[Rfam]
Nucleotides: 190
Base pairs, nucleotide, nucleotide: 001190002189003188004187005186006185007184010075011074012073013072016068017067018066019065020064021063022062023061024060025059026058027057028056029055030054032052033051034050035049080151081150082149083148086145087144090141091140092139093138094137095136096135154183155182156181157180158179159178160177163174164173165172166171
Number, partner (000 for none) and nucleotide at each position: 001190a002189c003188c004187u005186g006185u007184a008000c009000g010075g011074u012073u013072g014000c015000a016068a017067u018066c019065c020064a021063u022062a023061a024060u025059c026058u027057c028056a029055g030054u031000u032052u033051u034050a035049u036000g037000c038000a039000a040000u041000u042000u043000a044000u045000u046000g047000c048000a049035a050034u051033a052032a053000a054030a055029c056028u057027g058026a059025g060024a061023u062022u063021a064020u065019g066018g067017a068016u069000u070000a071000g072013c073012a074011a075010c076000c077000u078000a079000c080151u081150c082149a083148u084000g085000a086145a087144u088000g089000a090141g091140c092139a093138a094137a095136a096135a097000g098000c099000g100000g101000c102000u103000g104000c105000g106000u107000u108000a109000g110000c111000a112000g113000a114000c115000g116000u117000a118000a119000g120000a121000g122000u123000g124000c125000g126000u127000u128000a129000g130000c131000a132000c133000g134000g135096u136095u137094u138093u139092u140091g141090c142000g143000a144087a145086u146000g147000g148083a149082u150081g151080a152000g153000u154183c155182g156181g157180u158179u159178g160177g161000a162000g163174g164173c165172u166171c167000u168000u169000u170000a171166g172165a173164g174163u175000a176000u177160c178159c179158a180157a181156c182155c183154g184007u185006a186005c187004a188003g189002g190001u
The family of this 190-nucleotide RNA sequence from Lachnospiraceae bacterium M18-1 is "Clostridiales-1 RNA".
The source organism's lineage runs through Bacteria, Bacillati, Clostridia, Lachnospirales and Lachnospiraceae.
The family has 194 seed sequences and 1,172 matches in Rfam 15.1.